[Rfam]
RNA sequence: GUCGUGUCGGUGAUGUUUCAAACACAAAUGUCUGAACAUAUGAUACUUCAGUGAUUCUCACUCUGUUGCUGAGACGCGAC
Numbered sequence: 001g002u003c004g005u006g007u008c009g010g011u012g013a014u015g016u017u018u019c020a021a022a023c024a025c026a027a028a029u030g031u032c033u034g035a036a037c038a039u040a041u042g043a044u045a046c047u048u049c050a051g052u053g054a055u056u057c058u059c060a061c062u063c064u065g066u067u068g069c070u071g072a073g074a075c076g077c078g079a080c
Stems, first nucleotide, its partner, number of pairs: 002079007

Rfam assigns this 80-nucleotide RNA from Merluccius polli to the family "Small nucleolar RNA SNORD72". Rfam classes the family as a C/D-box small nucleolar RNA. snoRNA HBII-240 belongs to the CD family of snoRNAs.